[Rfam]
RNA sequence: UGAACCAGCGAGGGGUGCCAUUGGAGUAUACCCGACCCAUGGGUGUCAUUCCUUCGGCUGAGAUUAUACCCUAAAUAACCUGAUCCGGGUCAUACCGGCGGAGGGACUGCUGUGCUCGAUUGAU
Numbered sequence: 001u002g003a004a005c006c007a008g009c010g011a012g013g014g015g016u017g018c019c020a021u022u023g024g025a026g027u028a029u030a031c032c033c034g035a036c037c038c039a040u041g042g043g044u045g046u047c048a049u050u051c052c053u054u055c056g057g058c059u060g061a062g063a064u065u066a067u068a069c070c071c072u073a074a075a076u077a078a079c080c081u082g083a084u085c086c087g088g089g090u091c092a093u094a095c096c097g098g099c100g101g102a103g104g105g106a107c108u109g110c111u112g113u114g115c116u117c118g119a120u121u122g123a124u
Stems, first nucleotide, its partner, number of pairs: 006112005011072004016066001017058003079104003085098004
Notes
The record is a 124-nucleotide RNA sequence, which matches "TPP riboswitch aptamer (THI element)" in Rfam. The family's consensus secondary structure is taken from published work. A search with the family's covariance model found it, with a score of 56 bits.